[Rfam]
The record is a 78-nucleotide RNA sequence from Sphingomonas sp. BK345, which matches "Makes More Granules Regulator RNA (mmgR)" in Rfam.
The organism belongs to Sphingomonas, within Bacteria.
Rfam describes the family as follows. SuhB later renamed mmgR (makes more granules regulator) was a putative non-coding RNA found multiple times in the Agrobacterium tumefaciens genome and related alpha-proteobacteria. Other non-coding RNAs uncovered in the same analysis include: speF, ybhL, metA, and serC.Several studies inSinorhizobium meliloti showed that suhB element is indeed a non-coding RNA:firstly it was detected on Northern blot and called Sm8RNA, secondly in an RNAseq study referred to as SmelC689.The mutant phenotype's (strain lacking the small RNA) cytoplasm contains higher content of polyhydroxybutyrate (PBH)storage granules than wild type strain. The sRNA is required to limit the PBH intracellular accumulation when the nitrogen-fixing Sinorhizobium meliloti is under condition of surplus carbon in relation to nitrogen. It has been renamed to mmgR. Further study confirmed that mmgR fine-tunes the regulation of PBH storage.Northern blot confirmed the expression of the sRNA in other rhizobia species. MmgR homologues were found in most alpha-proteobacteria.
By type it is a small RNA.

RNA sequence: AAAGCGUGCCUUUCAGGCAUCCUCUCCUAAAAACUUUCAUAGGCCGCUCCUCGUUGAGCGGCCUUUUUUUCGUCUGCG
Dot-bracket structure: .......((((...))))......................(((((((((......)))))))))..............